[Rfam]
Source information: Rfam assigns this 185-nucleotide RNA sequence from Hoylesella timonensis to the family "Bacteroidales-1 6S-Bacteroidales RNA suggested". The source organism's lineage runs through Bacteria, Bacteroidales, Prevotellaceae, Hoylesella and Hoylesella timonensis. The family's RNA type in Rfam is small RNA. Bacteroidales-1 was first reported in a comparative genomics-based approach of genome and metagenome sequences from Weinberg et al. 2010 In a high-resolution transcriptome map study of Bacteroides thetaiotaomicron, Ryan et al. 2020 report this sRNA as 6S RNA homologue of Bacteroides, in the study they obtain evidence of small product RNAs (pRNAs) related to 6S function. The literature on the family includes a 2020 paper in Nat Commun by Ryan et al., "A high-resolution transcriptome map identifies small RNA regulation of metabolism in the gut microbe Bacteroides thetaiotaomicron". A search with the family's covariance model found it, with a score of 133 bits.
RNA sequence: GGUUGUGUCGAUUUGAUCGGGAUACUCAUCAAUAAAAACAUGAAACCGAGAAGACUUCUUUUGUUAAUGGCGGGCCACAUAAAUCCUUUUAGGACUAAGCUGUAAAGCCGGUGGAUUACAAAGACGGAGAGCUCUCAAAUCUUAUAUAGUUCGGAGUUUCAUCACAUCAUCGAGCAACCCCUUUU
Number, nucleotide and partner (000 for none) at each position: 001g000002g000003u000004u000005g000006u000007g000008u000009c000010g000011a000012u000013u000014u000015g000016a000017u000018c000019g000020g000021g000022a000023u000024a000025c000026u000027c000028a000029u000030c000031a000032a000033u000034a000035a000036a000037a000038a000039c000040a000041u000042g000043a000044a000045a000046c000047c000048g000049a000050g000051a000052a000053g000054a000055c131056u130057u000058c129059u000060u128061u127062u126063g125064u124065u123066a000067a000068u120069g119070g000071c000072g000073g000074g000075c114076c113077a112078c111079a000080u000081a000082a000083a000084u094085c093086c092087u000088u000089u000090u000091a000092g086093g085094a084095c000096u000097a000098a000099g108100c107101u106102g000103u000104a000105a000106a101107g100108c099109c000110g000111g078112u077113g076114g075115a000116u000117u000118a000119c069120a068121a000122a000123g065124a064125c063126g062127g061128a060129g058130a056131g055132c000133u000134c000135u000136c000137a000138a000139a000140u000141c000142u000143u000144a000145u000146a000147u000148a000149g000150u000151u000152c000153g000154g000155a000156g000157u000158u000159u000160c000161a000162u000163c000164a000165c000166a000167u000168c000169a000170u000171c000172g000173a000174g000175c000176a000177a000178c000179c000180c000181c000182u000183u000184u000185u000